Rfam assigns this 114-nucleotide sequence from Pipistrellus kuhlii to the family "Potassium channel RNA editing signal". Rfam 15.1 lists 14,095 matches to the family in 1,000 species. The source organism's lineage runs through Eukaryota, Metazoa, Euteleostomi, Tetrapoda and Pipistrellus. The family's consensus secondary structure is taken from published work.
[Rfam]
RNA sequence: GUGGGCUACGGCGACAUGUGCCCCACCACCGCGGGCGGCAAGAUCGUGGGCAUCCUGUGCGCCAUCGCCGGCGUGCUCACCAUCGCCCUGCCCGUGCCCGUCAUCGUGUCCAAC
Numbered sequence: 001g002u003g004g005g006c007u008a009c010g011g012c013g014a015c016a017u018g019u020g021c022c023c024c025a026c027c028a029c030c031g032c033g034g035g036c037g038g039c040a041a042g043a044u045c046g047u048g049g050g051c052a053u054c055c056u057g058u059g060c061g062c063c064a065u066c067g068c069c070g071g072c073g074u075g076c077u078c079a080c081c082a083u084c085g086c087c088c089u090g091c092c093c094g095u096g097c098c099c100g101u102c103a104u105c106g107u108g109u110c111c112a113a114c
Stems, first nucleotide, its partner, number of pairs: 001114002004111002007108005013102003018097004037077004049063003